[Rfam]
A member of the RNA family "Archaeal large subunit ribosomal RNA" from Methanocalculus chunghsingensis, 584 nucleotides of a longer RNA. Lineage of the source: Archaea > Methanobacteriati > Methanomicrobia > Methanocalculaceae > Methanocalculus. A search with the family's covariance model found it, with a score of 2900 bits. Clan: LSU clan.
RNA sequence: CUCCUGAUGGGAAGUGAAGACCCCGUGGAGCUUUACUGCAGCCUGUCGUUGUACUACGGUAUUGCAUGCGCAGCGUAGAUGGGAGACGUCGAACUGAUCCUUCCGGGGAUCAGGGAGUCGCCGUUGAGACACCAUCCUUGCUCUGCUGUAGUACUCACUCUUCUUGACUGAAGAGGACAUCGGUAGGUGGGCAGUUUGGGUGGGGCGCCACACCCUCGAAAAAAUAUCAAGGGUGCCCUAAGGUCAACUCAUGUGAGUCAGAAACUCACAGAAGAGUGUCAAGAGCAUACGUUGGCUUGACGCGAUGACGCACAGCAAGUCAUCGCGAGAGGAAACUCGGGUCUAACGAACCAAUACGCCCUGUUGAUGAGGGCUAUUGACUACAGAAAAGCUACCCCGGGGAUAAUAGAGUCGUCGCCGGCAAGAGCACAUAUCGACCCGGCGGCUUGCUACCUCGAUGUCGGUUCUUUCCAUCCUGGCUGUGCAGCAGCAGCCAAGGGUGAGGUUGUUCGCCUAUUAAAGGGGAUCGUGAGCUGGGUUUAGACCGUCGUGAGACAGGUCGGUUACUAUCUAUCAGGAGUGUU
Numbered sequence: 001c002u003c004c005u006g007a008u009g010g011g012a013a014g015u016g017a018a019g020a021c022c023c024c025g026u027g028g029a030g031c032u033u034u035a036c037u038g039c040a041g042c043c044u045g046u047c048g049u050u051g052u053a054c055u056a057c058g059g060u061a062u063u064g065c066a067u068g069c070g071c072a073g074c075g076u077a078g079a080u081g082g083g084a085g086a087c088g089u090c091g092a093a094c095u096g097a098u099c100c101u102u103c104c105g106g107g108g109a110u111c112a113g114g115g116a117g118u119c120g121c122c123g124u125u126g127a128g129a130c131a132c133c134a135u136c137c138u139u140g141c142u143c144u145g146c147u148g149u150a151g152u153a154c155u156c157a158c159u160c161u162u163c164u165u166g167a168c169u170g171a172a173g174a175g176g177a178c179a180u181c182g183g184u185a186g187g188u189g190g191g192c193a194g195u196u197u198g199g200g201u202g203g204g205g206c207g208c209c210a211c212a213c214c215c216u217c218g219a220a221a222a223a224a225u226a227u228c229a230a231g232g233g234u235g236c237c238c239u240a241a242g243g244u245c246a247a248c249u250c251a252u253g254u255g256a257g258u259c260a261g262a263a264a265c266u267c268a269c270a271g272a273a274g275a276g277u278g279u280c281a282a283g284a285g286c287a288u289a290c291g292u293u294g295g296c297u298u299g300a301c302g303c304g305a306u307g308a309c310g311c312a313c314a315g316c317a318a319g320u321c322a323u324c325g326c327g328a329g330a331g332g333a334a335a336c337u338c339g340g341g342u343c344u345a346a347c348g349a350a351c352c353a354a355u356a357c358g359c360c361c362u363g364u365u366g367a368u369g370a371g372g373g374c375u376a377u378u379g380a381c382u383a384c385a386g387a388a389a390a391g392c393u394a395c396c397c398c399g400g401g402g403a404u405a406a407u408a409g410a411g412u413c414g415u416c417g418c419c420g421g422c423a424a425g426a427g428c429a430c431a432u433a434u435c436g437a438c439c440c441g442g443c444g445g446c447u448u449g450c451u452a453c454c455u456c457g458a459u460g461u462c463g464g465u466u467c468u469u470u471c472c473a474u475c476c477u478g479g480c481u482g483u484g485c486a487g488c489a490g491c492a493g494c495c496a497a498g499g500g501u502g503a504g505g506u507u508g509u510u511c512g513c514c515u516a517u518u519a520a521a522g523g524g525g526a527u528c529g530u531g532a533g534c535u536g537g538g539u540u541u542a543g544a545c546c547g548u549c550g551u552g553a554g555a556c557a558g559g560u561c562g563g564u565u566a567c568u569a570u571c572u573a574u575c576a577g578g579a580g581u582g583u584u
Stems, first nucleotide, its partner, number of pairs: 001580008010572003014567002022401004027397002029393005035195004042187007051154011064141003068137001078136005085119003097110005158175006198211001199209003212234005237341002243296006249275002252270006276286002301327009329338001331336001352379005358374005410451003414448001415445007425435002462537001463535004467529001468526005475500002479494005503515004543561004547556003